[Rfam]
RNA sequence: UCUGGACCAGUGACGGCCUGUCUGUAAACCCAACAUUGGGGAAGGCAGGCCUGAUGACCCCUAGC
Numbered sequence: 001u002c003u004g005g006a007c008c009a010g011u012g013a014c015g016g017c018c019u020g021u022c023u024g025u026a027a028a029c030c031c032a033a034c035a036u037u038g039g040g041g042a043a044g045g046c047a048g049g050c051c052u053g054a055u056g057a058c059c060c061c062u063a064g065c
Stems, first nucleotide, its partner, number of pairs: 002064004015051009030039003
Notes
The record is a 65-nucleotide RNA sequence from Perca flavescens, which matches "Selenocysteine insertion sequence 1" in Rfam. By type it is a cis-regulatory element. Rfam's curators write: The incorporation of selenocysteine into a protein sequence is directed by an in-frame UGA codon (usually a stop codon) within the coding region of the mRNA. Selenoprotein mRNAs contain a conserved secondary structure in the 3' UTR that is required for the distinction of UGA stop from UGA selenocysteine. The selenocysteine insertion sequence (SECIS) is around 60 nt in length and adopts a hairpin structure which is sufficiently well-defined and conserved to act as a computational screen for selenoprotein genes.